[Rfam]
RNA sequence: UGGUGCCCAACAUGGGCCUGGAUACUGGAGGCGUUUUGUGAGGGAGAUGAUGGAAGAAGGAAGGAGUGCGCUCGUUCAAUUUUGAGUAGCUCGGAGACGCGCUGUGGGAGCCUGCCGCGACCGAACCGAAGGUAAGUUGUGCCUUCUGAUCAUGGGACAAGAAUUGAGCCAGCAUCAGAUUUAUGUCAAGCAAUUGAGAGAGGCUCUAAAGACACAAGGAGUAAAGGUUAGGACUGUGGAUUUAUUUCAUUUCUUUGAUUUUGUAAAGGACAUUUGUCCCU
Numbered sequence: 001u002g003g004u005g006c007c008c009a010a011c012a013u014g015g016g017c018c019u020g021g022a023u024a025c026u027g028g029a030g031g032c033g034u035u036u037u038g039u040g041a042g043g044g045a046g047a048u049g050a051u052g053g054a055a056g057a058a059g060g061a062a063g064g065a066g067u068g069c070g071c072u073c074g075u076u077c078a079a080u081u082u083u084g085a086g087u088a089g090c091u092c093g094g095a096g097a098c099g100c101g102c103u104g105u106g107g108g109a110g111c112c113u114g115c116c117g118c119g120a121c122c123g124a125a126c127c128g129a130a131g132g133u134a135a136g137u138u139g140u141g142c143c144u145u146c147u148g149a150u151c152a153u154g155g156g157a158c159a160a161g162a163a164u165u166g167a168g169c170c171a172g173c174a175u176c177a178g179a180u181u182u183a184u185g186u187c188a189a190g191c192a193a194u195u196g197a198g199a200g201a202g203g204c205u206c207u208a209a210a211g212a213c214a215c216a217a218g219g220a221g222u223a224a225a226g227g228u229u230a231g232g233a234c235u236g237u238g239g240a241u242u243u244a245u246u247u248c249a250u251u252u253c254u255u256u257g258a259u260u261u262u263g264u265a266a267a268g269g270a271c272a273u274u275u276g277u278c279c280c281u
Base pairs, nucleotide, nucleotide: 006031007030008028013024014023036050037049038048039047088133090131091129092128098123099122103119104118105117106116107115140159141158145156146155147154148153165208166207168204169203170202215257216256217255218254219253220252221251225243226242227241228240229239266281268279269278270277271276
This 281-nucleotide RNA sequence from Nannospalax galili belongs to the Rfam family "Mason-Pfizer monkey virus packaging signal". On this family, see Mustafa et al., Virus Res 2004: "Mutational analysis of the predicted secondary RNA structure of the Mason-Pfizer monkey virus packaging signal". Rfam describes the family as follows. This family represents a group of sequences that are related to the Mason-Pfizer monkey virus (MPMV) packaging signal. The packaging signal is located in the 5' UTR and is required for specific RNA encapsidation. The source organism's lineage runs through Eukaryota, Chordata, Craniata, Glires and Nannospalax. It is annotated as a cis-regulatory element.